The record is a 103-nucleotide RNA from Sedimentibacter sp. zth1, which matches "Purine riboswitch aptamer" in Rfam. Pairs were carried over by alignment from the consensus structure, which is taken from published work. A search with the family's covariance model found it, with a score of 67 bits. The family has 133 seed sequences and 4,097 matches in Rfam 15.1.

RNA sequence: AAAGAGAUAAAAACAUUCACUUAUAUAGAUUUUGAAAUAUGGUCAAAAUGUUUCUACCAAACUACCGUAAAUAGUUUUUGCUAUAAGUAACUAAUAAACUAAA
Numbered sequence: 001a002a003a004g005a006g007a008u009a010a011a012a013a014c015a016u017u018c019a020c021u022u023a024u025a026u027a028g029a030u031u032u033u034g035a036a037a038u039a040u041g042g043u044c045a046a047a048a049u050g051u052u053u054c055u056a057c058c059a060a061a062c063u064a065c066c067g068u069a070a071a072u073a074g075u076u077u078u079u080g081c082u083a084u085a086a087g088u089a090a091c092u093a094a095u096a097a098a099c100u101a102a103a
Stems, first nucleotide, its partner, number of pairs: 019088007029049007059077006